RNA Staph. aureus A: a 135-nucleotide RNA sequence from Staphylococcus caprae. About the family: Represses the translation of the transcriptional regulator MgrA by binding to its mRNA, enhances biofilm formation and decreases bacterial virulence. Other mRNAs, including SsaA-like enzymes involved in peptidoglycan metabolism and the secreted anti-inflammatory FLIPr protein were validated as direct targets of RsaA.
RNA sequence: AGUUAACGAUUACAAAGGAUAUAUUGGGUAGCGACUGUAUAUUCUCUAAAGUUAACUUAAUACGUAGUAGUGGUUAAAGUUCUCCCAAGGAUACUACUAGGAAGCACACUUCGAGUUCUCCGGAGUGUGUUUCUU
Numbered sequence: 001a002g003u004u005a006a007c008g009a010u011u012a013c014a015a016a017g018g019a020u021a022u023a024u025u026g027g028g029u030a031g032c033g034a035c036u037g038u039a040u041a042u043u044c045u046c047u048a049a050a051g052u053u054a055a056c057u058u059a060a061u062a063c064g065u066a067g068u069a070g071u072g073g074u075u076a077a078a079g080u081u082c083u084c085c086c087a088a089g090g091a092u093a094c095u096a097c098u099a100g101g102a103a104g105c106a107c108a109c110u111u112c113g114a115g116u117u118c119u120c121c122g123g124a125g126u127g128u129g130u131u132u133c134u135u
Stems, first nucleotide, its partner, number of pairs: 002056006016045009026035001069098006081091003100134013
The literature on the family includes a 2009 paper in Nucleic Acids Res by Geissmann et al., "A search for small noncoding RNAs in Staphylococcus aureus reveals a conserved sequence motif for regulation". Lineage of the source: Bacteria > Bacillati > Bacillota > Staphylococcus > Staphylococcus caprae.